MIR6450 microRNA precursor family: a 107-nucleotide sequence from Populus tomentosa.
[Rfam]
RNA sequence: AGGACCCGAUUGUCUUGGGUCCUGAGUCAAGACCCAAACUUAAUAGGUCUUGCGUCAAGAUCUAAUUAUAUUGGGUCCUUCAUCAAGAUCCAAGGCUCUUGGGUCUU
Numbered sequence: 001a002g003g004a005c006c007c008g009a010u011u012g013u014c015u016u017g018g019g020u021c022c023u024g025a026g027u028c029a030a031g032a033c034c035c036a037a038a039c040u041u042a043a044u045a046g047g048u049c050u051u052g053c054g055u056c057a058a059g060a061u062c063u064a065a066u067u068a069u070a071u072u073g074g075g076u077c078c079u080u081c082a083u084c085a086a087g088a089u090c091c092a093a094g095g096c097u098c099u100u101g102g103g104u105c106u107u
Stems, first nucleotide, its partner, number of pairs: 001107009013095009023085002029079001031077007044064007
Dot-bracket structure: (((((((((...(((((((((.((....(.(((((((......(((((((.......)))))))......))))))).)....)).)))))))))...)))))))))